[Rfam]
RNA sequence: CUUCACCGAGCCCAGCCAGAGCGGCUGCGCCCGGUCCCGGCCGUAGGUGGCGAGGAUCGCCUGCGCCUC
Numbered sequence: 001c002u003u004c005a006c007c008g009a010g011c012c013c014a015g016c017c018a019g020a021g022c023g024g025c026u027g028c029g030c031c032c033g034g035u036c037c038c039g040g041c042c043g044u045a046g047g048u049g050g051c052g053a054g055g056a057u058c059g060c061c062u063g064c065g066c067c068u069c
Stems, first nucleotide, its partner, number of pairs: 014026004028065003032059002037054001041050003
Rfam assigns this 69-nucleotide RNA from Micromonospora wenchangensis to the family "ASpks TB sRNA". The base pairs follow the family's consensus structure, which is taken from published work. A search with the family's covariance model found it, with a score of 70 bits. On this family, see Arnvig and Young, Mol Microbiol 2009: "Identification of small RNAs in Mycobacterium tuberculosis".